Description: Shown here is a 90-nucleotide RNA sequence from Aureimonas sp. Leaf460, a member of the family "Glycine riboswitch aptamer". The pairing is the family consensus, mapped onto this sequence. Lineage of the source: Bacteria > Alphaproteobacteria > Hyphomicrobiales > Aurantimonadaceae > Aureimonas.
[Rfam]
RNA sequence: ACCCGCCGCAGCGGGAGAGACCGGCGACGAGCCGGCGCCGAAGGAGCAACCGCCCCGGAAACUCUCAGGCAAAAGGACCGCGCGGCAUCG
Numbered sequence: 001a002c003c004c005g006c007c008g009c010a011g012c013g014g015g016a017g018a019g020a021c022c023g024g025c026g027a028c029g030a031g032c033c034g035g036c037g038c039c040g041a042a043g044g045a046g047c048a049a050c051c052g053c054c055c056c057g058g059a060a061a062c063u064c065u066c067a068g069g070c071a072a073a074a075g076g077a078c079c080g081c082g083c084g085g086c087a088u089c090g
Base pairs, nucleotide, nucleotide: 006085007084008083009082011081012080013079014078021035022034023033024032037070038069039068040066041065044064045063046062050058051057